[Rfam]
RNA sequence: CUGCACGUAGCACCCCGGGCUUCCCUGAAACUGUGACGGAAAAAGCCCCAAUGCUCGUGCUAGAUCAGAUCUAACGCCGUCAAGUGUUGCAGUUCAGCCUUUUGUACCUUUUUUAUGGCCGUUUCUGUGUCAAAUCGACGGCCACAUCA
Numbered sequence: 001c002u003g004c005a006c007g008u009a010g011c012a013c014c015c016c017g018g019g020c021u022u023c024c025c026u027g028a029a030a031c032u033g034u035g036a037c038g039g040a041a042a043a044a045g046c047c048c049c050a051a052u053g054c055u056c057g058u059g060c061u062a063g064a065u066c067a068g069a070u071c072u073a074a075c076g077c078c079g080u081c082a083a084g085u086g087u088u089g090c091a092g093u094u095c096a097g098c099c100u101u102u103u104g105u106a107c108c109u110u111u112u113u114u115a116u117g118g119c120c121g122u123u124u125c126u127g128u129g130u131c132a133a134a135u136c137g138a139c140g141g142c143c144a145c146a147u148c149a
Base pairs, nucleotide, nucleotide: 003060004059005058006057007056010054011053017048018047019046020045021044022042024039025038076142077141078140079139080138081137085132086131088129089128090127091126092125097119098118099117